Rfam assigns this 249-nucleotide sequence from Geotrypetes seraphini to the family "Small nucleolar RNA SNORA53".
RNA sequence: AACAUGCUCCUUAGAUCCACCUUUGUGGAUGCCAGAUUUGUGCUGAGUUUGGCUAGAUUUUCAUUUGAAGUGUCUAGUCAUUCCAGGCAAGUGGUAUUCAGCAACUUUUUUGGUUGUUCAGUCGAAGGUGCUUGAGUCAUUGGCAUGUAAGAGAAAUAUACCUGCACGUUAGCCUUUCAUGUUCUGAUGUUAAUACUGUUAAUGUUACAGUGUUUCUCAUCAUUAGGACUUGGCUGGUAUGCAGACAUU
Dot-bracket structure: .(((((((.(((((...((((((((((((((....((((...(((.(..((((..(.....(((.....))).)..))))..))))..))))..))))))((((((.....)))))).....)))))))).))))).....))))))).............(((((..(.((((........(((((((....(((((.........)))....)...).)))))))....)))).)..))))).....
Source information:
The family has 28 seed sequences and 1,090 matches in Rfam 15.1. The snoRNA ACA53 belongs to the H/ACA family of pseudouridylation guide snoRNAs. Its family is annotated with RNA processing and nucleolus in the Gene Ontology.